[Rfam]
RNA sequence: UUCUCGCUCAAAGGAUCGCAUUCAAAGCUCACACACAGAAUAUUCCUAGCGGGAUAUUCUCCUCUCACCAAAAGAGGUAAUGGCUUUGGGAGAAAGUCCCCGGACAUCCUGACCUUCAUACUGGUCAGGCAUUGCGGAAACGCGCCGCCAUAGAAGCAAUUCGAUAGCGGCUGACUGCCCUAUUCCCUCCCGGUAUCCUGUUUGUAUCCGACGCCUUCAAGGUGGAAACAAUGGUGGUAUAACUGGGUGCCGGAGAGGGGUUUAUCUGGGUUGCCAUUCGUCGUGUUUGGAUAGUCAUGCGAUUGCCUGGUUCCCUUGCAGGAACUGGGUAACUCAAUGGGGCUCAUUCUUGAGGCGAGG
Number, nucleotide and partner (000 for none) at each position: 001u000002u360003c359004u358005c357006g356007c355008u353009c352010a351011a350012a000013g000014g304015a303016u302017c301018g300019c299020a000021u000022u090023c088024a087025a086026a085027g084028c083029u000030c000031a000032c000033a000034c000035a000036c000037a000038g059039a058040a057041u056042a055043u054044u053045c052046c051047u000048a000049g000050c000051g046052g045053g044054a043055u042056a041057u040058u039059c038060u000061c000062c000063u000064c000065u000066c000067a000068c000069c000070a000071a000072a000073a000074g000075a000076g000077g000078u000079a000080a000081u000082g000083g028084c027085u026086u025087u024088g023089g000090g022091a000092g000093a000094a000095a344096g343097u000098c342099c341100c340101c339102g000103g000104a000105c000106a000107u000108c000109c000110u000111g000112a000113c000114c000115u000116u000117c000118a000119u000120a000121c000122u000123g000124g000125u000126c000127a000128g000129g000130c000131a000132u000133u000134g143135c142136g141137g000138a000139a000140a000141c136142g135143c134144g000145c000146c260147g000148c258149c257150a000151u000152a000153g000154a000155a000156g000157c000158a000159a000160u000161u000162c000163g000164a000165u000166a000167g000168c000169g000170g000171c000172u000173g000174a000175c000176u000177g000178c000179c000180c000181u000182a000183u000184u000185c000186c000187c000188u000189c000190c000191c000192g000193g000194u000195a000196u000197c000198c000199u000200g000201u000202u000203u000204g000205u000206a000207u000208c000209c000210g000211a000212c000213g000214c000215c000216u000217u000218c000219a000220a000221g000222g000223u000224g000225g000226a000227a000228a000229c000230a000231a000232u000233g000234g000235u000236g000237g000238u000239a000240u000241a000242a000243c253244u252245g251246g250247g000248u000249g000250c246251c245252g244253g243254a000255g000256a000257g149258g148259g000260g146261u000262u000263u000264a000265u000266c000267u000268g000269g000270g000271u000272u000273g000274c000275c000276a000277u000278u000279c000280g000281u000282c000283g000284u000285g000286u000287u000288u000289g000290g000291a000292u000293a000294g000295u000296c000297a000298u000299g019300c018301g017302a016303u015304u014305g000306c329307c328308u327309g326310g325311u324312u323313c322314c321315c000316u000317u000318g000319c000320a000321g314322g313323a312324a311325c310326u309327g308328g307329g306330u000331a000332a000333c000334u000335c000336a000337a000338u000339g101340g100341g099342g098343c096344u095345c000346a000347u000348u000349c000350u011351u010352g009353a008354g000355g007356c006357g005358a004359g003360g002
RNA: RNase MRP
Organism: Aspergillus arachidicola